[Rfam]
RNA sequence: CCCGCACCUAGACGACGAGACGAAAAGCCGGACGCCCUGCCGGCUUGGUGUGGGAACUUUCUCUCCAGGG
Numbered sequence: 001c002c003c004g005c006a007c008c009u010a011g012a013c014g015a016c017g018a019g020a021c022g023a024a025a026a027g028c029c030g031g032a033c034g035c036c037c038u039g040c041c042g043g044c045u046u047g048g049u050g051u052g053g054g055a056a057c058u059u060u061c062u063c064u065c066c067a068g069g070g
Base pairs, nucleotide, nucleotide: 001054002053003052004051005050006049007048008047011021013019027044028043029042030041031040035070036069037068038067039066
This 70-nucleotide sequence from Xanthomonas albilineans belongs to the Rfam family "int-alpA RNA".
Rfam's curators write: Acidobacteria (1 example), Planctomycetes (1 example), Proteobacteria.
NCBI's taxonomy places the organism under Bacteria, Pseudomonadati, Gammaproteobacteria, Lysobacterales, Xanthomonas albilineans.
The family's RNA type in Rfam is small RNA.